[Rfam]
RNA sequence: AAAUUUCAUCAAGAGCAGGACAAUGUCCUCACCAACCUGCCUCACUGGGCAAGGUGGUGGUCAUAGUAGACACGCUAUGAAGAUGUGGCCUUUAAUACAUUAUGGGCAACAAAACAGGCAAAA
Dot-bracket structure: ......((((....(.(((((...))))))(((..((((((...[[[))).))).))).......................))))..((((............)))).......]]]......
Numbered sequence: 001a002a003a004u005u006u007c008a009u010c011a012a013g014a015g016c017a018g019g020a021c022a023a024u025g026u027c028c029u030c031a032c033c034a035a036c037c038u039g040c041c042u043c044a045c046u047g048g049g050c051a052a053g054g055u056g057g058u059g060g061u062c063a064u065a066g067u068a069g070a071c072a073c074g075c076u077a078u079g080a081a082g083a084u085g086u087g088g089c090c091u092u093u094a095a096u097a098c099a100u101u102a103u104g105g106g107c108a109a110c111a112a113a114a115c116a117g118g119c120a121a122a123a
Stems, first nucleotide, its partner, number of pairs: 007085004015030001017029005031058003036054003039050003045117003088107004